The family of this 81-nucleotide RNA sequence from Buttiauxella agrestis is "antisense RNA of dnaA mRNA". A search with the family's covariance model found it, with a score of 79 bits.

[Rfam]
RNA sequence: UUUUGCAUUCGGUUUGCGAGCAAUAAUACCGUUGCCAACAGCAUGCAAAAGGUGCGUUUUACCUAAACCCGUGCCGCCAUA
Numbered sequence: 001u002u003u004u005g006c007a008u009u010c011g012g013u014u015u016g017c018g019a020g021c022a023a024u025a026a027u028a029c030c031g032u033u034g035c036c037a038a039c040a041g042c043a044u045g046c047a048a049a050a051g052g053u054g055c056g057u058u059u060u061a062c063c064u065a066a067a068c069c070c071g072u073g074c075c076g077c078c079a080u081a
Stems, first nucleotide, its partner, number of pairs: 004043003009038001011036003016032003020029001051078004056074002061072002
Dot-bracket structure: ...(((..(.(((..(((.(........)))).))).)..))).......((((.((...((........))))))))...